SAM (S-adenosyl methionine) riboswitch aptamer: a 114-nucleotide sequence from Kribbella antiqua.
Nucleotides: 114
Base pairs, nucleotide, nucleotide: 001078002077003076004075009038011037012036013035014034015033016032021030022029039065040064041063044061045060046059048056049055081103082102083101084100086098087097088096089095
Number, partner (000 for none) and nucleotide at each position: 001078g002077g003076u004075c005000a006000u007000g008000a009038g010000u011037g012036c013035c014034a015033g016032c017000g018000u019000u020000c021030a022029g023000c024000c025000c026000c027000g028000g029022c030021u031000u032016g033015c034014u035013g036012g037011u038009c039065g040064g041063c042000a043000a044061c045060c046059c047000u048056c049055c050000u051000c052000g053000u054000g055049g056048g057000u058000g059046g060045g061044g062000u063041g064040c065039u066000c067000c068000g069000g070000g071000u072000g073000a074000g075004g076003a077002c078001c079000g080000g081103g082102c083101c084100c085000c086098g087097c088096a089095c090000a091000u092000g093000c094000g095089g096088u097087g098086u099000c100084g101083g102082g103081c104000a105000a106000g107000c108000c109000g110000c111000g112000a113000g114000a
The organism belongs to Kribbella, within Bacteria.